Nucleotides: 346
Base pairs, nucleotide, nucleotide: 001342002341003340004339005338006337007336008335009334010333012311013310014309015308016307017306018305020048021047022046023045024044053329054328055327057326058325059324060323061322062220063219064218065217069250070249071248072247076215077214078213079212080094081093082092083091084090095109096107097106098105099104110211111210115209116208117205118204119203131150132149133146134145135144136143137142158176159175160174161173162172163171177200178197179196180195181194182193183192184191185190224268225267226266227265234259235258236257237256238255239254243253244252245251276293277292278291279290280289281288282287
Number, partner (000 for none) and nucleotide at each position: 001342a002341g003340a004339g005338u006337a007336a008335a009334u010333u011000a012311g013310a014309c015308a016307g017306u018305c019000g020048c021047g022046u023045a024044u025000a026000g027000c028000a029000a030000g031000g032000u033000c034000g035000a036000a037000a038000g039000a040000c041000a042000g043000c044024g045023u046022a047021c048020g049000a050000g051000g052000a053329a054328a055327g056000u057326c058325c059324g060323g061322g062220c063219u064218c065217c066000a067000u068000a069250g070249a071248g072247c073000a074000a075000u076215g077214a078213u079212g080094c081093u082092g083091g084090a085000u086000a087000a088000c089000g090084u091083c092082c093081a094080g095109u096107g097106a098105g099104g100000g101000a102000a103000a104099c105098c106097u107096u108000a109095a110211g111210g112000a113000a114000a115209g116208u117205g118204c119203a120000a121000c122000a123000g124000a125000a126000a127000a128000u129000a130000a131150c132149c133146g134145c135144c136143u137142u138000g139000u140000a141000a142137a143136a144135g145134g146133u147000a148000a149132g150131g151000g152000u153000g154000a155000a156000a157000a158176g159175g160174u161173g162172a163171g164000g165000u166000a167000a168000g169000a170000g171163c172162u173161u174160a175159c176158c177200g178197c179196a180195g181194g182193u183192a184191u185190g186000g187000u188000g189000a190185c191184a192183u193182a194181u195180c196179u197178g198000g199000u200177c201000a202000a203119u204118g205117u206000a207000a208116a209115c210111c211110c212079c213078a214077u215076c216000u217065g218064g219063a220062g221000c222000a223000a224268c225267a226266c227265c228000g229000a230000g231000c232000u233000u234259g235258a236257g237256g238255g239254u240000u241000a242000a243253g244252a245251c246000u247072g248071c249070u250069c251245g252244u253243c254239g255238u256237c257236c258235u259234c260000u261000u262000a263000u264000u265227g266226g267225u268224g269000g270000c271000u272000u273000g274000a275000g276293c277292c278291a279290u280289a281288u282287g283000g284000u285000a286000a287282c288281a289280u290279a291278u292277g293276g294000a295000c296000u297000a298000g299000a300000u301000a302000a303000a304000u305018g306017a307016c308015u309014g310013u311012c312000c313000a314000a315000g316000a317000c318000a319000g320000a321000a322061c323060c324059c325058g326057g327055c328054u329053u330000a331000c332000a333010g334009a335008u336007u337006u338005a339004c340003u341002u342001u343000u344000u345000a346000a

The record is a 346-nucleotide RNA sequence from Clostridium sp. CAG:354, which matches "Bacterial RNase P class A" in Rfam. The base pairs follow the family's consensus structure, which is taken from published work. The match comes from Rfam's covariance-model search (284 bits). Rfam's curators write: Ribonuclease P (RNase P) is a ubiquitous endoribonuclease, found in archaea, bacteria and eukarya as well as chloroplasts and mitochondria.